This 73-nucleotide RNA sequence from Callorhinchus milii belongs to the Rfam family "Small nucleolar RNA SNORD56". On this family, see Galardi et al., Mol Cell Biol 2002: "Purified box C/D snoRNPs are able to reproduce site-specific 2'-O-methylation of target RNA in vitro". It is annotated as a C/D-box small nucleolar RNA. The base pairs follow the family's consensus structure, which was predicted with PFOLD.
RNA sequence: CUGCUAUGAUGUUUGACUAUUUUUCGUCAACAGCAUCUCACUGUGUGAAUGUUGACAACCUCAGUCUGAGCAG
Numbered sequence: 001c002u003g004c005u006a007u008g009a010u011g012u013u014u015g016a017c018u019a020u021u022u023u024u025c026g027u028c029a030a031c032a033g034c035a036u037c038u039c040a041c042u043g044u045g046u047g048a049a050u051g052u053u054g055a056c057a058a059c060c061u062c063a064g065u066c067u068g069a070g071c072a073g
Stems, first nucleotide, its partner, number of pairs: 002072003008028004